RNA sequence: UGCUACCAAACCCUAUCUCCACCUCCACAUGGUGACCGCUGGGAGUUCUUUCUUAACGAAAAGCUGCAGAAGGAGAAGG
Numbered sequence: 001u002g003c004u005a006c007c008a009a010a011c012c013c014u015a016u017c018u019c020c021a022c023c024u025c026c027a028c029a030u031g032g033u034g035a036c037c038g039c040u041g042g043g044a045g046u047u048c049u050u051u052c053u054u055a056a057c058g059a060a061a062a063g064c065u066g067c068a069g070a071a072g073g074a075g076a077a078g079g
Base pairs, nucleotide, nucleotide: 012079013078014077016075018073019072021033022032023031044065045064046063047062049060050059052058
Notes:
Shown here is a 79-nucleotide sequence from Hermetia illucens, a member of the family "drz-agam-1 ribozyme". A reference for the family is Webb et al. (2009), "Widespread occurrence of self-cleaving ribozymes", Science. NCBI's taxonomy places the organism under Eukaryota, Eumetazoa, Panarthropoda, Pancrustacea, Hermetia. Its family is annotated with catalytic activity in the Gene Ontology.